[Rfam]
RNA: Group II catalytic intron D1-D4-6
RNA sequence: AGUGCGCCAAGUCAGGUAAGGUCUAACCAACCACCUGUAUCAAGUGUUGCGUUGAUACUGGCGACAAUAAAGAUGAAGCGACACCGAGAAUCAUAUAGGCCAUAGGGGAGACCGUAAUCCCUGAAGCAUAUUCAGCCCCAUAAAUCGCGUACCUAGAAAUAGGAAAAUGCAGAUGACGACGUGUUUUACGUCACGGAAGUCAAUACAAAGGAAUCGUUAAUAGUGAGAUUUUUGAGGGUCUGUCGGGGUCCUAUAACA
Numbered sequence: 001a002g003u004g005c006g007c008c009a010a011g012u013c014a015g016g017u018a019a020g021g022u023c024u025a026a027c028c029a030a031c032c033a034c035c036u037g038u039a040u041c042a043a044g045u046g047u048u049g050c051g052u053u054g055a056u057a058c059u060g061g062c063g064a065c066a067a068u069a070a071a072g073a074u075g076a077a078g079c080g081a082c083a084c085c086g087a088g089a090a091u092c093a094u095a096u097a098g099g100c101c102a103u104a105g106g107g108g109a110g111a112c113c114g115u116a117a118u119c120c121c122u123g124a125a126g127c128a129u130a131u132u133c134a135g136c137c138c139c140a141u142a143a144a145u146c147g148c149g150u151a152c153c154u155a156g157a158a159a160u161a162g163g164a165a166a167a168u169g170c171a172g173a174u175g176a177c178g179a180c181g182u183g184u185u186u187u188a189c190g191u192c193a194c195g196g197a198a199g200u201c202a203a204u205a206c207a208a209a210g211g212a213a214u215c216g217u218u219a220a221u222a223g224u225g226a227g228a229u230u231u232u233u234g235a236g237g238g239u240c241u242g243u244c245g246g247g248g249u250c251c252u253a254u255a256a257c258a
Stems, first nucleotide, its partner, number of pairs: 013037004020032003024226001026224002040087002044084006050075004056069002059066002135249005169243006175201003180195004206237001209233007